[Rfam]
RNA: ASdes TB sRNA
RNA sequence: AGCUGGGUGGGGUCGACCAUCCGCUUGACGAGGAGGUAGUCGCGCAUCGCGAUGCCGUGCCGGCCCUC
Dot-bracket structure: ...(.(.((..((..(.........).)).....((((.(((((...))))))))).)).).).....